A member of the RNA family "mir-216 microRNA precursor family" from Anabarilius grahami, 75 nucleotides long. The family's consensus secondary structure was predicted with WAR. The match comes from Rfam's covariance-model search (59 bits). For this family Rfam cites "Identification of novel chicken microRNAs and analysis of their genomic organization" (Shao et al., Gene, 2008).
RNA sequence: UUUUGGCAUAAUCUCAGCUGGCAACUGUGAGUAUGUGUCACCCCUCUCACAGGCGCUGCUGGGGUUCUGUCACAC
Number, nucleotide and partner (000 for none) at each position: 001u000002u000003u000004u072005g071006g070007c069008a000009u000010a066011a065012u064013c063014u062015c061016a060017g059018c000019u000020g057021g056022c055023a000024a000025c000026u051027g050028u049029g048030a047031g046032u000033a000034u000035g000036u000037g000038u000039c000040a000041c000042c000043c000044c000045u000046c031047u030048c029049a028050c027051a026052g000053g000054c000055g022056c021057u020058g000059c017060u016061g015062g014063g013064g012065u011066u010067c000068u000069g007070u006071c005072a004073c000074a000075c000